[Rfam]
RNA sequence: UGCUUAUCUAGAGUGGAGGAGGGACUGGCCCAAUGAACCCCGACAACCCGCAUGAUUGCAUGCACGGUGUCAAUUCCAGAAACACUGAAGGGUGUUUGAAGAUGAGAA
Numbered sequence: 001u002g003c004u005u006a007u008c009u010a011g012a013g014u015g016g017a018g019g020a021g022g023g024a025c026u027g028g029c030c031c032a033a034u035g036a037a038c039c040c041c042g043a044c045a046a047c048c049c050g051c052a053u054g055a056u057u058g059c060a061u062g063c064a065c066g067g068u069g070u071c072a073a074u075u076c077c078a079g080a081a082a083c084a085c086u087g088a089a090g091g092g093u094g095u096u097u098g099a100a101g102a103u104g105a106g107a108a
Stems, first nucleotide, its partner, number of pairs: 001108001003106006013041001015040002021031003025079004042071004047067002050063004075100001080097006
Annotation
The family of this 108-nucleotide RNA sequence from Sporolactobacillus inulinus is "SAM riboswitch aptamer (S box leader)". The family's consensus secondary structure is taken from published work. The source organism's lineage runs through Bacteria, Bacillota, Caryophanales, Sporolactobacillus and Sporolactobacillus inulinus.